[Rfam]
RNA sequence: GAUCGUUUCUCUGGAGACACCCGUUAGAUCGGGGGCCGAAGGUGCAAAUAACAUGGAAUGUGGAUAACUUCCCACAACUGGUUAUCUGAUCCGUGUUUUGAAUCUCUCAGGCAAAAGGACAGAGGAUGCUUU
Numbered sequence: 001g002a003u004c005g006u007u008u009c010u011c012u013g014g015a016g017a018c019a020c021c022c023g024u025u026a027g028a029u030c031g032g033g034g035g036c037c038g039a040a041g042g043u044g045c046a047a048a049u050a051a052c053a054u055g056g057a058a059u060g061u062g063g064a065u066a067a068c069u070u071c072c073c074a075c076a077a078c079u080g081g082u083u084a085u086c087u088g089a090u091c092c093g094u095g096u097u098u099u100g101a102a103u104c105u106c107u108c109a110g111g112c113a114a115a116a117g118g119a120c121a122g123a124g125g126a127u128g129c130u131u132u
Stems, first nucleotide, its partner, number of pairs: 007126007020033004035112003038108002042106001044104001048099001
Dot-bracket structure: ......(((((((......((((......)))).(((((..(.(...(..................................................)....).))).))).......)))))))......
RNA: Glycine riboswitch aptamer